The family of this 67-nucleotide RNA sequence from Triplophysa rosa is "mir-338 microRNA precursor family". Rfam 15.1 lists 1,231 matches to the family in 632 species. NCBI's taxonomy places the organism under Eukaryota, Actinopterygii, Otophysi, Nemacheilidae, Triplophysa. A search with the family's covariance model found it, with a score of 64 bits. Pairs were carried over by alignment from the consensus structure, which was predicted with RNAalifold.
[Rfam]
RNA sequence: CUGGGAACAACAUCCUGAUGCUGUUAAGUAUUGAGUAAAACUCCAGCAUCAGUGAUUUUGUUGCCAG
Numbered sequence: 001c002u003g004g005g006a007a008c009a010a011c012a013u014c015c016u017g018a019u020g021c022u023g024u025u026a027a028g029u030a031u032u033g034a035g036u037a038a039a040a041c042u043c044c045a046g047c048a049u050c051a052g053u054g055a056u057u058u059u060g061u062u063g064c065c066a067g
Stems, first nucleotide, its partner, number of pairs: 006062005012056003015052009
The literature on the family includes a 2005 paper in Genes Dev by Chen et al., "The developmental miRNA profiles of zebrafish as determined by small RNA cloning".